Rfam assigns this 40-nucleotide RNA sequence from Tobravirus pisi to the family "Pseudoknot of tRNA-like structure". The family's consensus secondary structure is taken from published work. The organism belongs to Tobravirus pisi, within Viruses. The sequence is in the family's curated seed alignment.

RNA sequence: AGGGUUAAACCCUUCCGCCUACGUAAGCGUUAUUACGCCC
Numbered sequence: 001a002g003g004g005u006u007a008a009a010c011c012c013u014u015c016c017g018c019c020u021a022c023g024u025a026a027g028c029g030u031u032a033u034u035a036c037g038c039c040c
Stems, first nucleotide, its partner, number of pairs: 016029003022037005
Dot-bracket structure: ...............[[[...(((((]]]...)))))...